The family of this 132-nucleotide RNA sequence is "ALIL pseudoknot". By type it is a cis-regulatory element.
RNA sequence: GGCGUUUUUCGCCUCGGCGGAGCUCGACCGCCGACUGCGGUGAUCGUCGACUACAUCGACGCCCACAAGGGCCGGUUCGGGGUCGAGCCGAUCUGUGCUGUGCUGACCCAGCACGGCGCCACGAUCGCCCCG
Numbered sequence: 001g002g003c004g005u006u007u008u009u010c011g012c013c014u015c016g017g018c019g020g021a022g023c024u025c026g027a028c029c030g031c032c033g034a035c036u037g038c039g040g041u042g043a044u045c046g047u048c049g050a051c052u053a054c055a056u057c058g059a060c061g062c063c064c065a066c067a068a069g070g071g072c073c074g075g076u077u078c079g080g081g082g083u084c085g086a087g088c089c090g091a092u093c094u095g096u097g098c099u100g101u102g103c104u105g106a107c108c109c110a111g112c113a114c115g116g117c118g119c120c121a122c123g124a125u126c127g128c129c130c131c132g
Stems, first nucleotide, its partner, number of pairs: 016032005078132005089127002092124002095122002